[Rfam]
RNA sequence: UUCUUUUAGGUCUGUGGUUGCGGUUUAUCCAAGUCCAAGGCAGAUGCGGUCAAAAGGAUCCACGUAAGUUAUCGAUUUUUCGAAACGAGCAUGGCGCAUCCUAGAGGUAAGACGUACCGCUCGAAAUUGCAGCAUGGGGCUGCACGGGCGAGAGGGCGAUGUAUUAAAGCUUAGUCCCAGUGCGCGAGUGUGGGGUCAAAAACCAGGUCAGCUGAAAGAA
Numbered sequence: 001u002u003c004u005u006u007u008a009g010g011u012c013u014g015u016g017g018u019u020g021c022g023g024u025u026u027a028u029c030c031a032a033g034u035c036c037a038a039g040g041c042a043g044a045u046g047c048g049g050u051c052a053a054a055a056g057g058a059u060c061c062a063c064g065u066a067a068g069u070u071a072u073c074g075a076u077u078u079u080u081c082g083a084a085a086c087g088a089g090c091a092u093g094g095c096g097c098a099u100c101c102u103a104g105a106g107g108u109a110a111g112a113c114g115u116a117c118c119g120c121u122c123g124a125a126a127u128u129g130c131a132g133c134a135u136g137g138g139g140c141u142g143c144a145c146g147g148g149c150g151a152g153a154g155g156g157c158g159a160u161g162u163a164u165u166a167a168a169g170c171u172u173a174g175u176c177c178c179a180g181u182g183c184g185c186g187a188g189u190g191u192g193g194g195g196u197c198a199a200a201a202a203c204c205a206g207g208u209c210a211g212c213u214g215a216a217a218g219a220a
Base pairs, nucleotide, nucleotide: 001220002219003218004217005216006215007214008213009212012211013210014209015205016204017203018202019201037191039189040050043100044099045098046097047096048095059094060093069084070083092198113184114183115182116181117180118150119149120148121147122146154177155176156175157174161170162169

Description:
A member of the RNA family "raiA RNA" from Eggerthella sp. CAG:368, 220 nucleotides long. NCBI's taxonomy places the organism under Bacteria, Actinomycetota, Coriobacteriia, Eggerthellaceae, Eggerthella.